[Rfam]
Description
This 134-nucleotide RNA sequence from Synaphobranchus kaupii belongs to the Rfam family "Small nucleolar RNA SNORA13". The family's consensus secondary structure was predicted with CMfinder. NCBI's taxonomy places the organism under Eukaryota, Eumetazoa, Neopterygii, Elopocephala, Synaphobranchus. It scores 55 bits against the family's covariance model. Its family is annotated with RNA processing and nucleolus in the Gene Ontology. Its Rfam clan is "SNORA13 clan". It is annotated as an H/ACA-box small nucleolar RNA. About the family: ACA13 is a member of the H/ACA class of snoRNA that guide the sites of modification of uridines to pseudouridines.
RNA sequence: UGCCUUUAUGUGUUUCCCGUUCCAUUGUGCUCCAGAAAUGAACGUGGUGUCAGCAAAGGCAUACAUCAACUCUUGUCAGCCUUAGUGAGGUGUCUCAGUGUCACCUUGUAUUAAGCUCUACAACAAGCACACUG
Number, nucleotide and partner (000 for none) at each position: 001u000002g060003c059004c058005u057006u056007u055008a000009u000010g000011u052012g051013u000014u049015u000016c047017c046018c044019g043020u042021u041022c040023c000024a039025u038026u037027g000028u000029g000030c000031u000032c000033c000034a000035g000036a000037a026038a025039u024040g022041a021042a020043c019044g018045u000046g017047g016048u000049g014050u000051c012052a011053g000054c000055a007056a006057a005058g004059g003060c002061a000062u000063a000064c000065a000066u000067c000068a000069a000070c000071u000072c127073u126074u125075g124076u122077c000078a119079g118080c000081c000082u000083u000084a000085g111086u110087g000088a107089g000090g000091u103092g102093u000094c000095u000096c000097a000098g000099u000100g000101u000102c092103a091104c000105c000106u000107u088108g000109u000110a086111u085112u000113a000114a000115g000116c000117u000118c079119u078120a000121c000122a076123a000124c075125a074126a073127g072128c000129a000130c000131a000132c000133u000134g000